[Rfam]
RNA sequence: AGGUAGAUGCACCCUGAUUCAACUGUUACCUCAGUUUAAAAGACUGAGGUUUUUUAUU
Numbered sequence: 001a002g003g004u005a006g007a008u009g010c011a012c013c014c015u016g017a018u019u020c021a022a023c024u025g026u027u028a029c030c031u032c033a034g035u036u037u038a039a040a041a042g043a044c045u046g047a048g049g050u051u052u053u054u055u056a057u058u
Base pairs, nucleotide, nucleotide: 002013003012004011028050029049030048031047032046033045034044035043036042037041
Description: The record is a 58-nucleotide RNA from Calothrix sp. NIES-4101, which matches "Nitrogen stress-induced RNA 1" in Rfam. The family's RNA type in Rfam is small RNA.